Shown here is a 93-nucleotide RNA from Azonexus hydrophilus, a member of the family "c-di-GMP-I riboswitch aptamer".
RNA sequence: CAUUGAUCAGGGCAAACCCGUCGAAAGGCGGGGACGCAAAGCUUCCAGUCUAAUGAACCAGGAUCUUGGUUCGAUGAUAGUGGGGUCGCCAAU
Numbered sequence: 001c002a003u004u005g006a007u008c009a010g011g012g013c014a015a016a017c018c019c020g021u022c023g024a025a026a027g028g029c030g031g032g033g034a035c036g037c038a039a040a041g042c043u044u045c046c047a048g049u050c051u052a053a054u055g056a057a058c059c060a061g062g063a064u065c066u067u068g069g070u071u072c073g074a075u076g077a078u079a080g081u082g083g084g085g086u087c088g089c090c091a092a093u
Base pairs, nucleotide, nucleotide: 012037013036017032018031019030020029021028022027041086042085043084045083046082047081048078049077050076055072056071057070058069059068060067061066
The match comes from Rfam's covariance-model search (74 bits). The organism belongs to Azonexus, within Bacteria.